[Rfam]
RNA: Small nucleolar RNA SNORD30
Organism: Muntiacus reevesi
RNA sequence: AUCUGUGAUGACUAACAUGGAAUCUUGUUCGGCUGAUGAUUUGCUGUUGAGACUCGGAAAACUGAUUUUC
Numbered sequence: 001a002u003c004u005g006u007g008a009u010g011a012c013u014a015a016c017a018u019g020g021a022a023u024c025u026u027g028u029u030c031g032g033c034u035g036a037u038g039a040u041u042u043g044c045u046g047u048u049g050a051g052a053c054u055c056g057g058a059a060a061a062c063u064g065a066u067u068u069u070c
Base pairs, nucleotide, nucleotide: 023052024051025050026049027048030046031045032044033043